[Rfam]
RNA: Trans-activation response element (TAR)
RNA sequence: GGGUCUCUCUAGGUAGACCAGGUCCAAGCCCGGGAGCUCCUGGCUAUCUAGGAAACCCAC
Numbered sequence: 001g002g003g004u005c006u007c008u009c010u011a012g013g014u015a016g017a018c019c020a021g022g023u024c025c026a027a028g029c030c031c032g033g034g035a036g037c038u039c040c041u042g043g044c045u046a047u048c049u050a051g052g053a054a055a056c057c058c059a060c
Stems, first nucleotide, its partner, number of pairs: 001058004006054001008052009018043004027038003